[Rfam]
Nucleotides: 148
Stems, first nucleotide, its partner, number of pairs: 002060007020031003073136002075103005081097003108127002111124001113122002
Number, partner (000 for none) and nucleotide at each position: 001000g002060c003059c004058c005057a006056g007055g008054g009000u010000a011000u012000g013000u014000u015000c016000c017000c018000g019000c020031g021030g022029u023000g024000a025000u026000g027000c028000u029022g030021c031020c032000c033000u034000c035000c036000c037000a038000g039000c040000u041000g042000g043000c044000c045000c046000g047000u048000g049000g050000a051000u052000g053000c054008c055007c056006c057005u058004g059003g060002g061000a062000a063000c064000g065000u066000u067000a068000c069000u070000g071000c072000c073136u074135c075103a076102c077101g078100u079099u080000u081097g082096u083095g084000c085000c086000u087000c088000a089000g090000u091000u092000a093000c094000c095083c096082a097081u098000u099079g100078a101077u102076g103075u104000a105000g106000u107000g108127a109126g110000g111124g112000g113122a114121a115000c116000g117000a118000u119000a120000c121114u122113u123000a124111u125000g126109c127108u128000c129000g130000u131000u132000g133000g134000u135074g136073g137000u138000a139000a140000g141000a142000a143000a144000c145000a146000g147000c148000u